[Rfam]
RNA sequence: UUACUUCUGUGUUUUAUGGCUUUCUAUUCCUAUGUGAUUAUACAUGAUAUCUCAUGUAGGGUUGAAAGCCAUUGGGCACAGAGUGGA
Numbered sequence: 001u002u003a004c005u006u007c008u009g010u011g012u013u014u015u016a017u018g019g020c021u022u023u024c025u026a027u028u029c030c031u032a033u034g035u036g037a038u039u040a041u042a043c044a045u046g047a048u049a050u051c052u053c054a055u056g057u058a059g060g061g062u063u064g065a066a067a068g069c070c071a072u073u074g075g076g077c078a079c080a081g082a083g084u085g086g087a
Stems, first nucleotide, its partner, number of pairs: 002086001005083010016072008026063001028061010